A member of the RNA family "MIR8024 microRNA precursor family" from Solanum commersonii, 85 nucleotides long. Its family is annotated with miRNA-mediated post-transcriptional gene silencing and RISC complex in the Gene Ontology.

RNA sequence: UUGAAGAAUUUGAAGACUUCAACUUGCAAACUAGAUUAAUUUGAGACUCCAUCUUGUAGACUUGAAGAAUUUGAAGACAUCAACU
Numbered sequence: 001u002u003g004a005a006g007a008a009u010u011u012g013a014a015g016a017c018u019u020c021a022a023c024u025u026g027c028a029a030a031c032u033a034g035a036u037u038a039a040u041u042u043g044a045g046a047c048u049c050c051a052u053c054u055u056g057u058a059g060a061c062u063u064g065a066a067g068a069a070u071u072u073g074a075a076g077a078c079a080u081c082a083a084c085u
Stems, first nucleotide, its partner, number of pairs: 001083004006078001009075006017067005025058004032051001034049002
The family's consensus secondary structure was predicted with RNAalifold.